[Rfam]
RNA sequence: AAUCAAGAGCGCGGAUGACAAGCCCUGGCUAGUCCGCCGGCAACCCUCGACGCGGUAGUUGGGGUGCCCCAGGUGAGGAUUCGGCCCGUGUGACCGUCACGGGCAAGUACCGCCU
Numbered sequence: 001a002a003u004c005a006a007g008a009g010c011g012c013g014g015a016u017g018a019c020a021a022g023c024c025c026u027g028g029c030u031a032g033u034c035c036g037c038c039g040g041c042a043a044c045c046c047u048c049g050a051c052g053c054g055g056u057a058g059u060u061g062g063g064g065u066g067c068c069c070c071a072g073g074u075g076a077g078g079a080u081u082c083g084g085c086c087c088g089u090g091u092g093a094c095c096g097u098c099a100c101g102g103g104c105a106a107g108u109a110c111c112g113c114c115u
Stems, first nucleotide, its partner, number of pairs: 001081004009038001011037006021030002039068003044064003084104007